The record is a 36-nucleotide sequence, which matches "DUF805b RNA" in Rfam. It is annotated as a cis-regulatory element. Clan: DUF805 clan. The family's consensus secondary structure is taken from published work.

RNA sequence: AAGGAAGUCGCCGAAAAUCCUAUCAAAGAGUAGGCA
Numbered sequence: 001a002a003g004g005a006a007g008u009c010g011c012c013g014a015a016a017a018u019c020c021u022a023u024c025a026a027a028g029a030g031u032a033g034g035c036a
Stems, first nucleotide, its partner, number of pairs: 002021004010035003
Dot-bracket structure: .((((....[[[.....))))...........]]].